[Rfam]
The family of this 66-nucleotide RNA is "DUF3800-VIII RNA". Rfam's curators put it in the seed alignment. The base pairs follow the family's consensus structure, which is taken from published work. Rfam's curators write: Bacteroidetes, Cyanobacteria, Firmicutes, Planctomycetes (1 example), Proteobacteria, Tenericutes (1 example). It is annotated as a small RNA.
RNA sequence: AAAUCUCUGUGGUUUCCGAAGUCUUACGUUAUGCGUAAGCGGUUAAUGUAGGAACUACGGGAAUUU
Numbered sequence: 001a002a003a004u005c006u007c008u009g010u011g012g013u014u015u016c017c018g019a020a021g022u023c024u025u026a027c028g029u030u031a032u033g034c035g036u037a038a039g040c041g042g043u044u045a046a047u048g049u050a051g052g053a054a055c056u057a058c059g060g061g062a063a064u065u066u
Stems, first nucleotide, its partner, number of pairs: 001066004006061008015053003023039007